[Rfam]
RNA sequence: UAAUUUGUAUGUUGUCGUCCCCAUCUAGUUGUUGUAAACUCACAUCUAACUGCUCAUAUCACAUUUAUUACAAAUAUAAUUGUAUUAUUAACACUCAUAAAAUAUAUUUGUAAGAAAAAAUUCUUAAAAU
Numbered sequence: 001u002a003a004u005u006u007g008u009a010u011g012u013u014g015u016c017g018u019c020c021c022c023a024u025c026u027a028g029u030u031g032u033u034g035u036a037a038a039c040u041c042a043c044a045u046c047u048a049a050c051u052g053c054u055c056a057u058a059u060c061a062c063a064u065u066u067a068u069u070a071c072a073a074a075u076a077u078a079a080u081u082g083u084a085u086u087a088u089u090a091a092c093a094c095u096c097a098u099a100a101a102a103u104a105u106a107u108u109u110g111u112a113a114g115a116a117a118a119a120a121u122u123c124u125u126a127a128a129a130u
Stems, first nucleotide, its partner, number of pairs: 004128004009122001012119001015116001018115002024113001026110003030106001
RNA: MIR480 microRNA precursor family
Organism: Salix brachista